RNA sequence: UAGCGCAGCCGGGGAAUUAGCGGCUCCCUGUACCUACAAUCCGCUAUAGUGGGGGUGAUGUCCUGCCGAGGGUUCAGACUUGUGUAGCUGCCCUUCGCAAGUGGCGUUGAUAUCUGGGUCUUACGCAAUGGAAAUCCGUGAACCGUGUCAGGUCGGGAACGAAGCAGCACUAAGCGGAAUCUUUCAUGUGCCGUGAGGGUGCCUGGGUUGAGUUAACUGCGAAGGUAACGUAUGUGGGAAUGAAUUCGAAGCAGGACGCGCUA
Numbered sequence: 001u002a003g004c005g006c007a008g009c010c011g012g013g014g015a016a017u018u019a020g021c022g023g024c025u026c027c028c029u030g031u032a033c034c035u036a037c038a039a040u041c042c043g044c045u046a047u048a049g050u051g052g053g054g055g056u057g058a059u060g061u062c063c064u065g066c067c068g069a070g071g072g073u074u075c076a077g078a079c080u081u082g083u084g085u086a087g088c089u090g091c092c093c094u095u096c097g098c099a100a101g102u103g104g105c106g107u108u109g110a111u112a113u114c115u116g117g118g119u120c121u122u123a124c125g126c127a128a129u130g131g132a133a134a135u136c137c138g139u140g141a142a143c144c145g146u147g148u149c150a151g152g153u154c155g156g157g158a159a160c161g162a163a164g165c166a167g168c169a170c171u172a173a174g175c176g177g178a179a180u181c182u183u184u185c186a187u188g189u190g191c192c193g194u195g196a197g198g199g200u201g202c203c204u205g206g207g208u209u210g211a212g213u214u215a216a217c218u219g220c221g222a223a224g225g226u227a228a229c230g231u232a233u234g235u236g237g238g239a240a241u242g243a244a245u246u247c248g249a250a251g252c253a254g255g256a257c258g259c260g261c262u263a
Stems, first nucleotide, its partner, number of pairs: 001263006008056003011029005017023002033053005061256006070247005076241001079238007089227002093224006101217002103214003112208008120197006126188002129186005135178005145170004153162003
Overview
Bacterial large signal recognition particle RNA: a 263-nucleotide RNA from bacterium C-53. It scores 185 bits against the family's covariance model. About the family: The signal recognition particle (SRP) is a universally conserved ribonucleoprotein involved in the co-translational targeting of proteins to membranes. Rfam classes the family as a non-coding RNA gene. The family's consensus secondary structure is taken from published work.